[Rfam]
RNA sequence: AGCCUAAACCCAUAGAUAACCUAUGGGCAUGGCAAACAAGACCCUUGGAAGAUACUGAACCUCACGUUCAGCAACUCUUCCAUGGGCUGUACUUCGAAAGGAGUAUAGGGUCGUAAGACCU
Numbered sequence: 001a002g003c004c005u006a007a008a009c010c011c012a013u014a015g016a017u018a019a020c021c022u023a024u025g026g027g028c029a030u031g032g033c034a035a036a037c038a039a040g041a042c043c044c045u046u047g048g049a050a051g052a053u054a055c056u057g058a059a060c061c062u063c064a065c066g067u068u069c070a071g072c073a074a075c076u077c078u079u080c081c082a083u084g085g086g087c088u089g090u091a092c093u094u095c096g097a098a099a100g101g102a103g104u105a106u107a108g109g110g111u112c113g114u115a116a117g118a119c120c121u
Stems, first nucleotide, its partner, number of pairs: 002033003009027007042086003046082007053073001055071006088107008108121005
Rfam assigns this 121-nucleotide sequence to the family "LOOT RNA". It is one of the family's seed sequences. It is annotated as a small RNA. The family's consensus secondary structure is taken from published work.